A member of the RNA family "Listeria sRNA rli28" from Ligilactobacillus pobuzihii, 184 nucleotides long.
On this family, see Michels et al., Neuroendocrinology 1991: "Muscarinic cholinergic control of vasopressin secretion from the acute hypothalamoneurohypophysial explant".
The organism belongs to Ligilactobacillus, within Bacteria.
RNA sequence: AGUUUUCUGUAUAAUAGACCAAGCAAGAAGUUUUAAGGGCGGUGGCUGUCUUUUCCCUUGCGAGGUGAGGCCCAUGGGAACAUGGAAUAAUCUUCAGAAAGGUUUCACAGUCAAUGAGCGUCUUCCAGACACUCUCGUUGAUGUUGCUGUUUGCAAUGUUUAUUUUGGCGUUGCUAACAUACAU
Number, nucleotide and partner (000 for none) at each position: 001a000002g000003u000004u000005u000006u000007c000008u000009g000010u000011a000012u000013a000014a000015u000016a000017g000018a000019c000020c000021a000022a000023g000024c000025a000026a000027g000028a000029a000030g000031u000032u000033u000034u000035a000036a000037g000038g000039g000040c000041g000042g157043u156044g000045g154046c153047u000048g000049u000050c000051u000052u000053u000054u000055c000056c000057c000058u000059u000060g000061c000062g094063a093064g092065g091066u090067g000068a088069g000070g000071c085072c000073c000074a000075u000076g000077g000078g000079a000080a000081c000082a000083u000084g000085g071086a000087a000088u068089a000090a066091u065092c064093u063094u062095c000096a000097g000098a000099a000100a000101g000102g000103u000104u000105u000106c000107a000108c000109a000110g000111u000112c000113a000114a000115u000116g136117a135118g134119c000120g132121u131122c000123u129124u000125c000126c000127a000128g000129a123130c000131a121132c120133u000134c118135u117136c116137g000138u000139u000140g000141a000142u000143g000144u000145u000146g000147c000148u000149g000150u000151u000152u000153g046154c045155a000156a043157u042158g000159u000160u000161u000162a180163u179164u000165u177166u000167g175168g174169c000170g000171u000172u000173g000174c168175u167176a000177a165178c000179a163180u162181a000182c000183a000184u000